[Rfam]
RNA sequence: GCAUCUGAAUCUGUCCCAGUCCUUGCGAUUAGUGCUGGACUGGGACACGCGAUGCAAGAGGACAGCGGAGGAAAUCCAGACAAGCUCCCUUUCACCGCAGUGGGACUUGUCUCUACGCCUUUGCAACACUU
Numbered sequence: 001g002c003a004u005c006u007g008a009a010u011c012u013g014u015c016c017c018a019g020u021c022c023u024u025g026c027g028a029u030u031a032g033u034g035c036u037g038g039a040c041u042g043g044g045a046c047a048c049g050c051g052a053u054g055c056a057a058g059a060g061g062a063c064a065g066c067g068g069a070g071g072a073a074a075u076c077c078a079g080a081c082a083a084g085c086u087c088c089c090u091u092u093c094a095c096c097g098c099a100g101u102g103g104g105a106c107u108u109g110u111c112u113c114u115a116c117g118c119c120u121u122u123g124c125a126a127c128a129c130u131u
Stems, first nucleotide, its partner, number of pairs: 001055005013046007021038002065124006078112007092103003
Rfam assigns this 131-nucleotide sequence from Mesembrinibis cayennensis to the family "Small nucleolar RNA SNORA55". Taxonomically the source falls in Mesembrinibis (Eukaryota, Chordata, Dipnotetrapodomorpha, Sauropsida). The match comes from Rfam's covariance-model search (94 bits). From the family's description: ACA55 is a member of the H/ACA class of snoRNA that guide the sites of modification of uridines to pseudouridines. Gene Ontology terms of the family: RNA processing and nucleolus.